[Rfam]
RNA: mir-87 microRNA precursor family
RNA sequence: UCUCAGCGCCUGAUACUUGCUUUUAACCUGAGAAUGAAUGAAGGUGAGCAAAGUUUCAGGUGUGUAGGGAG
Numbered sequence: 001u002c003u004c005a006g007c008g009c010c011u012g013a014u015a016c017u018u019g020c021u022u023u024u025a026a027c028c029u030g031a032g033a034a035u036g037a038a039u040g041a042a043g044g045u046g047a048g049c050a051a052a053g054u055u056u057c058a059g060g061u062g063u064g065u066a067g068g069g070a071g
Base pairs, nucleotide, nucleotide: 002069003068004067006065007062008061009060010059011058012057013056015054016053017052018051022048023047024046025045027044028043029042